[Rfam]
RNA sequence: UAACUUCUGUACGACUGGCGGAUAAAUGGGAUUACCCAUGGGGAGUACAGAGAAUAGUAUUUGUAAUAUAUUUAUUGUCAUCCAUAAAUUUAUUGCAAUUAUAAAGCCGACCGCCUGGGCAGCCAAU
Numbered sequence: 001u002a003a004c005u006u007c008u009g010u011a012c013g014a015c016u017g018g019c020g021g022a023u024a025a026a027u028g029g030g031a032u033u034a035c036c037c038a039u040g041g042g043g044a045g046u047a048c049a050g051a052g053a054a055u056a057g058u059a060u061u062u063g064u065a066a067u068a069u070a071u072u073u074a075u076u077g078u079c080a081u082c083c084a085u086a087a088a089u090u091u092a093u094u095g096c097a098a099u100u101a102u103a104a105a106g107c108c109g110a111c112c113g114c115c116u117g118g119g120c121a122g123c124c125a126a127u
Stems, first nucleotide, its partner, number of pairs: 005052008015042002017115005026039004106120003

Overview:
This 127-nucleotide RNA sequence from Anaeromicropila herbilytica belongs to the Rfam family "ZMP/ZTP riboswitch aptamer (pfl RNA motif)". Its family is annotated with regulation of purine nucleotide biosynthetic process and one-carbon metabolic process in the Gene Ontology. A search with the family's covariance model found it, with a score of 52 bits.